[Rfam]
The record is a 112-nucleotide RNA, which matches "SAM riboswitch aptamer (S box leader)" in Rfam. For this family Rfam cites "An mRNA structure that controls gene expression by binding S-adenosylmethionine" (Winkler et al., Nat Struct Biol, 2003). Gene Ontology term of the family: regulation of gene expression.

RNA sequence: CACUCAUCGAGACCGGCUGAGGGACAGGCCCUUUGAAGCCGGGGCAACCUGCGGAAUGUUCCGCGACGGUGCCAACUCCUGCGGCGGCGCAGGAGCCUGUUGGACUUGAGUG
Numbered sequence: 001c002a003c004u005c006a007u008c009g010a011g012a013c014c015g016g017c018u019g020a021g022g023g024a025c026a027g028g029c030c031c032u033u034u035g036a037a038g039c040c041g042g043g044g045c046a047a048c049c050u051g052c053g054g055a056a057u058g059u060u061c062c063g064c065g066a067c068g069g070u071g072c073c074a075a076c077u078c079c080u081g082c083g084g085c086g087g088c089g090c091a092g093g094a095g096c097c098u099g100u101u102g103g104a105c106u107u108g109a110g111u112g
Stems, first nucleotide, its partner, number of pairs: 001112006007104002013042005021031003025081004043073004048069002050065004077102001082099002087097001